The family of this 115-nucleotide sequence from Flexivirga aerilata is "SAM (S-adenosyl methionine) riboswitch aptamer". Rfam's curators write: SAM-IV is a mRNA element that regulates gene expression via direct sensing of S-adenosylmethionine (SAM or AdoMet). The family is grouped with related families in Rfam's "SAM clan". For this family Rfam cites "The aptamer core of SAM-IV riboswitches mimics the ligand-binding site of SAM-I riboswitches" (Weinberg et al., RNA, 2008). The base pairs follow the family's consensus structure, which is taken from published work.
[Rfam]
RNA sequence: GGUCAUGAGUCUCAGCGUCAAGCCCCGGCUUGCUGAGCGGCAACCCUCCUUCCGCGGUGGGGUGCUCCGGGUGACGACCGGGUCGGCGUGACACCCACGCCGGCAAGCGCGGAUC
Numbered sequence: 001g002g003u004c005a006u007g008a009g010u011c012u013c014a015g016c017g018u019c020a021a022g023c024c025c026c027g028g029c030u031u032g033c034u035g036a037g038c039g040g041c042a043a044c045c046c047u048c049c050u051u052c053c054g055c056g057g058u059g060g061g062g063u064g065c066u067c068c069g070g071g072u073g074a075c076g077a078c079c080g081g082g083u084c085g086g087c088g089u090g091a092c093a094c095c096c097a098c099g100c101c102g103g104c105a106a107g108c109g110c111g112g113a114u115c
Stems, first nucleotide, its partner, number of pairs: 001079004009038001011037006021030002039066003044062003048057002082104009